A member of the RNA family "SAM riboswitch aptamer (S box leader)" from Alkaliphilus peptidifermentans, 107 nucleotides long.

RNA sequence: CUCUUAUCCAGAGAGGUGGAGGGUCUGGCCCUAUGAAACCCGGCAACCGGCUAUAAGCUAUAGCAUCGGUGCCAAUUCCUGCGAUACAUUGUAUCGACAGAUGAGAG
Numbered sequence: 001c002u003c004u005u006a007u008c009c010a011g012a013g014a015g016g017u018g019g020a021g022g023g024u025c026u027g028g029c030c031c032u033a034u035g036a037a038a039c040c041c042g043g044c045a046a047c048c049g050g051c052u053a054u055a056a057g058c059u060a061u062a063g064c065a066u067c068g069g070u071g072c073c074a075a076u077u078c079c080u081g082c083g084a085u086a087c088a089u090u091g092u093a094u095c096g097a098c099a100g101a102u103g104a105g106a107g
Stems, first nucleotide, its partner, number of pairs: 001107008013041001015040003021031003025081001027079002042073004047069002050064003077099001082096006
Taxonomically the source falls in Alkaliphilus peptidifermentans (Bacteria, Bacillati, Peptostreptococcales, Natronincolaceae). The match comes from Rfam's covariance-model search (93 bits).